The family of this 176-nucleotide RNA sequence from Chiloscyllium punctatum is "Small nucleolar RNA SNORA81". It is annotated as an H/ACA-box small nucleolar RNA. The family's consensus secondary structure was predicted with WAR. A reference for the family is Gu et al. (2005), "A novel experimental approach for systematic identification of box H/ACA snoRNAs from eukaryotes", Nucleic Acids Res.
[Rfam]
RNA sequence: AUUGUCCUUUGCAAGCAUCCUGCUGUAGCUGGGAACAUUGGUUAAUUCUGAUGUUCUUAUCAAUGACAGUUGGAUUUGUUGGGACAUAGAUUAAUGCCCCACCCACAUUGACGUGGGAGAAGUGGACCUCUUUCUUAAUGUCCAGUGCUUUUGCCUGUUGAUGUGGUGGCACACUC
Numbered sequence: 001a002u003u004g005u006c007c008u009u010u011g012c013a014a015g016c017a018u019c020c021u022g023c024u025g026u027a028g029c030u031g032g033g034a035a036c037a038u039u040g041g042u043u044a045a046u047u048c049u050g051a052u053g054u055u056c057u058u059a060u061c062a063a064u065g066a067c068a069g070u071u072g073g074a075u076u077u078g079u080u081g082g083g084a085c086a087u088a089g090a091u092u093a094a095u096g097c098c099c100c101a102c103c104c105a106c107a108u109u110g111a112c113g114u115g116g117g118a119g120a121a122g123u124g125g126a127c128c129u130c131u132u133u134c135u136u137a138a139u140g141u142c143c144a145g146u147g148c149u150u151u152u153g154c155c156u157g158u159u160g161a162u163g164u165g166g167u168g169g170c171a172c173a174c175u176c
Stems, first nucleotide, its partner, number of pairs: 018074002022070004028064001030062002032057002035054007099169003103166005119148001121146001123144004
Dot-bracket structure: .................((..((((..(.((((.(((((((......))))))).))...)).)..))))..))........................(((.(((((...........(.(.((((..............)))).).).............)))))))).......